[Rfam]
RNA: Staphylococcus sRNA71 small RNA
RNA sequence: AGAUAUGAUAUAUUAAAGGUGUAGUUGGAAACCGACUACUAGUCUUUUAUAUUCAUGAACAUAUUACUCUUAAGGCGACACGGAUGUGUCGUCUUUUUUUAU
Number, nucleotide and partner (000 for none) at each position: 001a000002g000003a000004u057005a056006u055007g054008a053009u000010a000011u000012a000013u000014u049015a048016a047017a046018g045019g044020u000021g039022u038023a037024g036025u035026u034027g033028g000029a000030a000031a000032c000033c027034g026035a025036c024037u023038a022039c021040u000041a000042g000043u000044c019045u018046u017047u016048u015049a014050u000051a000052u000053u008054c007055a006056u005057g004058a000059a000060c000061a000062u000063a000064u000065u000066a000067c000068u000069c000070u000071u000072a000073a094074g093075g092076c091077g090078a089079c088080a087081c000082g000083g000084a000085u000086g000087u080088g079089u078090c077091g076092u075093c074094u073095u000096u000097u000098u000099u000100u000101a000102u000